[Rfam]
Pseudomonas sRNA P36: a 56-nucleotide RNA from Brassicogethes aeneus. The organism belongs to Brassicogethes, within Eukaryota.
RNA sequence: GAACCGGGUACCCGGAACCGGGUACCCGAAACCGGGUACCCGAAACCGGGUACCCG
Numbered sequence: 001g002a003a004c005c006g007g008g009u010a011c012c013c014g015g016a017a018c019c020g021g022g023u024a025c026c027c028g029a030a031a032c033c034g035g036g037u038a039c040c041c042g043a044a045a046c047c048g049g050g051u052a053c054c055c056g
Stems, first nucleotide, its partner, number of pairs: 005028010033056010
Dot-bracket structure: ....((((((((((....))))))))))....((((((((((....))))))))))